mir-8364 microRNA precursor family: a 61-nucleotide RNA sequence from Pristionchus pacificus. Gene Ontology terms of the family: miRNA-mediated post-transcriptional gene silencing and RISC complex. NCBI's taxonomy places the organism under Eukaryota, Protostomia, Ecdysozoa, Nematoda, Pristionchus. The match comes from Rfam's covariance-model search (88 bits). Rfam 15.1 lists 3,320 matches to the family in 2 species.
RNA sequence: UCUUCAUUUCACGUGCUCUCUCACCGGUCAGAGUGGCGAGAGAGCAUGUGAAAUGAAGAGA
Dot-bracket structure: (((((((..(.((((((.((((...............)))).)))))).)..)))))))..
Numbered sequence: 001u002c003u004u005c006a007u008u009u010c011a012c013g014u015g016c017u018c019u020c021u022c023a024c025c026g027g028u029c030a031g032a033g034u035g036g037c038g039a040g041a042g043a044g045c046a047u048g049u050g051a052a053a054u055g056a057a058g059a060g061a
Stems, first nucleotide, its partner, number of pairs: 001059007010050001012048006019041004